[Rfam]
RNA: mir-8/mir-141/mir-200 microRNA precursor family
RNA sequence: GGCAACAUCUUACCAGACAGCAUUUAGUUUUUGAAAGGAAUACUAAUACUGUCUGGUAAUGAUGUUGGU
Dot-bracket structure: ..((((((((((((((((((.(.(((((.............)))))).))))))))))).)))))))..